The family of this 101-nucleotide RNA sequence from Peribacillus muralis is "Guanidine-I riboswitch aptamer". Rfam's curators write: This family represents a conserved RNA structure found upstream of the ykkC and yxkD genes in Bacillus subtilis and related genes in other bacteria. Rfam links the family to the GO term regulation of gene expression. The match comes from Rfam's covariance-model search (86 bits).

Nucleotides: 101
Base pairs, nucleotide, nucleotide: 007059008058009057010056011055012054015049016048020046021045022043023040024039025038026037028036029035061074062073063072064071065070076096078099082094083093084092
Number, partner (000 for none) and nucleotide at each position: 001000u002000c003000a004000a005000a006000u007059g008058u009057u010056u011055u012054c013000u014000a015049g016048g017000g018000u019000u020046c021045c022043g023040c024039a025038g026037c027000u028036c029035a030000u031000g032000u033000a034000a035029u036028g037026g038025c039024u040023g041000g042000c043022c044000u045021g046020g047000u048016c049015c050000g051000a052000g053000a054012g055011a056010a057009a058008a059007c060000u061074c062073a063072c064071a065070g066000c067000u068000u069000g070065c071064u072063g073062u074061g075000u076096c077000a078099c079000g080000g081000a082094a083093g084092g085000a086000u087000a088000a089000a090000a091000g092084c093083c094082u095000g096076g097000g098000a099078g100000a101000u